[Rfam]
RNA sequence: CUUUCUGAUGAUGAUUAAUCUAAAUACUUUUGUUCUUCUGAUAUGCUAUUUCAUAGUGCUGUGCGGAGGCAAUUUGGAGACCUGAACUGAGGAAAU
Numbered sequence: 001c002u003u004u005c006u007g008a009u010g011a012u013g014a015u016u017a018a019u020c021u022a023a024a025u026a027c028u029u030u031u032g033u034u035c036u037u038c039u040g041a042u043a044u045g046c047u048a049u050u051u052c053a054u055a056g057u058g059c060u061g062u063g064c065g066g067a068g069g070c071a072a073u074u075u076g077g078a079g080a081c082c083u084g085a086a087c088u089g090a091g092g093a094a095a096u
Stems, first nucleotide, its partner, number of pairs: 003094004

Source information:
Small nucleolar RNA Z159/U59: a 96-nucleotide RNA sequence from Hordeum vulgare. For this family Rfam cites "The high diversity of snoRNAs in plants: identification and comparative study of 120 snoRNA genes from Oryza sativa" (Chen et al., Nucleic Acids Res, 2003). The family has 10 seed sequences and 1,401 matches in Rfam 15.1. Gene Ontology terms of the family: RNA processing and nucleolus. Its Rfam clan is "SNORD59 clan".